RNA sequence: GGCGUAAAGGGCGCGUAGGCGGCCCUGCAAGUCAGUUGUGAAAGCCCACGGCUCAACCGUGGAUGUGCAAUUGAAACUGCAGGGCUUGAGUACCGGCGGGGAAGAUGGAAUUCCCGGUGUAGAGGUGAAAUUCGUAGAUAUCGGGAGGAAUACCGGUGGCGAAGGCGAUCUUCUGGACGGAUACUGACGCUGAGGCGCGAAAGCGUGGGGAGCAAACAGGAUUAGAUACCCUGGUAGUCCACAGCUGUAAACGAUGUGCACUAGAUGUUGGGAGGAAUUGACCCUUUCAGUGUCGCAGCUAACGCAUUAAGUGCACCGCCUGGGGAGUACGGCCGCAAGGUUAAAACUCAAAGGAAU
Numbered sequence: 001g002g003c004g005u006a007a008a009g010g011g012c013g014c015g016u017a018g019g020c021g022g023c024c025c026u027g028c029a030a031g032u033c034a035g036u037u038g039u040g041a042a043a044g045c046c047c048a049c050g051g052c053u054c055a056a057c058c059g060u061g062g063a064u065g066u067g068c069a070a071u072u073g074a075a076a077c078u079g080c081a082g083g084g085c086u087u088g089a090g091u092a093c094c095g096g097c098g099g100g101g102a103a104g105a106u107g108g109a110a111u112u113c114c115c116g117g118u119g120u121a122g123a124g125g126u127g128a129a130a131u132u133c134g135u136a137g138a139u140a141u142c143g144g145g146a147g148g149a150a151u152a153c154c155g156g157u158g159g160c161g162a163a164g165g166c167g168a169u170c171u172u173c174u175g176g177a178c179g180g181a182u183a184c185u186g187a188c189g190c191u192g193a194g195g196c197g198c199g200a201a202a203g204c205g206u207g208g209g210g211a212g213c214a215a216a217c218a219g220g221a222u223u224a225g226a227u228a229c230c231c232u233g234g235u236a237g238u239c240c241a242c243a244g245c246u247g248u249a250a251a252c253g254a255u256g257u258g259c260a261c262u263a264g265a266u267g268u269u270g271g272g273a274g275g276a277a278u279u280g281a282c283c284c285u286u287u288c289a290g291u292g293u294c295g296c297a298g299c300u301a302a303c304g305c306a307u308u309a310a311g312u313g314c315a316c317c318g319c320c321u322g323g324g325g326a327g328u329a330c331g332g333c334c335g336c337a338a339g340g341u342u343a344a345a346a347c348u349c350a351a352a353g354g355a356a357u
Base pairs, nucleotide, nucleotide: 001320002319003318009317011198012197013196014195016192018191019190020189022085023084024083025082026081027080028079030078031077032074033073034072035071036070037069038068039067040066046062047061048060049059050058051057089185090184091183093180094179095178097176100174101173102172103171104170105169106168107151111147112146113145114144115143116142117141118140122133123132124131159166160165203245204244205242206241207240208239212238213237217233218232219231220230256316257315258314259313260312261311264294265293266292267291268290269289270288271287272286273285274284275283298305299304322349323348324347331342332341333340334339
Bacterial small subunit ribosomal RNA: a 357-nucleotide part of an RNA from Desulfurivibrio alkaliphilus.
The family's consensus secondary structure is taken from published work.
A reference for the family is Yusupov et al. (2001), "Crystal structure of the ribosome at 5.5 A resolution", Science.